Shown here is a 218-nucleotide sequence from Cladonia borealis, a member of the family "Group I catalytic intron". Rfam describes the family as follows. Group I catalytic introns are large self-splicing ribozymes. NCBI's taxonomy places the organism under Eukaryota, Pezizomycotina, Lecanoromycetes, Cladoniaceae, Cladonia. A reference for the family is Cech (1990), "Self-splicing of group I introns", Annu Rev Biochem. Gene Ontology term of the family: Group I intron splicing. The family's consensus secondary structure is taken from published work.
RNA sequence: CCUGCCCUUUUACCCAAGUACAAGGGGCUGACAGAAACUCUAAGUUGGCCAUGUCAAUGACAGCCAGUUAAUGCCUUCUAAGUGCGUGGAAGCUCACUGAGUUACCCGCAGCCAAAUCCUUAAUUCGAAAGGAUGCAGUUCACAGACUAACUGAAGGCGGGCCCUCUCUUAAAUAAGAAGGGCCUAAAUUAUAGUCGAUCUACCCUGUUACCAGGGAU
Numbered sequence: 001c002c003u004g005c006c007c008u009u010u011u012a013c014c015c016a017a018g019u020a021c022a023a024g025g026g027g028c029u030g031a032c033a034g035a036a037a038c039u040c041u042a043a044g045u046u047g048g049c050c051a052u053g054u055c056a057a058u059g060a061c062a063g064c065c066a067g068u069u070a071a072u073g074c075c076u077u078c079u080a081a082g083u084g085c086g087u088g089g090a091a092g093c094u095c096a097c098u099g100a101g102u103u104a105c106c107c108g109c110a111g112c113c114a115a116a117u118c119c120u121u122a123a124u125u126c127g128a129a130a131g132g133a134u135g136c137a138g139u140u141c142a143c144a145g146a147c148u149a150a151c152u153g154a155a156g157g158c159g160g161g162c163c164c165u166c167u168c169u170u171a172a173a174u175a176a177g178a179a180g181g182g183c184c185u186a187a188a189u190u191a192u193a194g195u196c197g198a199u200c201u202a203c204c205c206u207g208u209u210a211c212c213a214g215g216g217a218u
Base pairs, nucleotide, nucleotide: 005026006025007024008023009022011020012019013018031039072159073158074157075156076155078153083110084109085108086107088105092102093101094100095099111139112138116134117133118132119131143197145196146195147194148193149192161183162182163181164180165179167177169175203216204215205214206213207212